A member of the RNA family "SAM riboswitch aptamer (S box leader)" from Mucilaginibacter myungsuensis, 121 nucleotides long.
Nucleotides: 121
Stems, first nucleotide, its partner, number of pairs: 001121001003119006013042005021031003026091003043084004048080002050076001052074002088113001093110006
Number, partner (000 for none) and nucleotide at each position: 001121u002000a003119c004118u005117u006116a007115u008114c009000c010000a011000g012000a013042a014041a015040g016039a017038c018000u019000g020000a021031g022030g023029g024000a025000a026091a027090g028089g029023c030022c031021c032000a033000a034000a035000g036000a037000c038017g039016u040015c041014u042013u043084a044083g045082c046081a047000a048080c049079c050076u051000g052074u053073a054000c055000c056000a057000a058000g059000c060000c061000c062000g063000u064000u065000g066000g067000g068000g069000c070000a071000a072000g073053u074052a075000a076050a077000a078000a079049g080048g081046u082045g083044c084043u085000a086000a087000u088113u089028c090027c091026u092000g093110c094109u095108c096107u097106g098105u099000u100000a101000c102000c103000a104000a105098a106097c107096a108095g109094g110093g111000a112000a113088a114008g115007a116006u117005a118004a119003g120000c121001g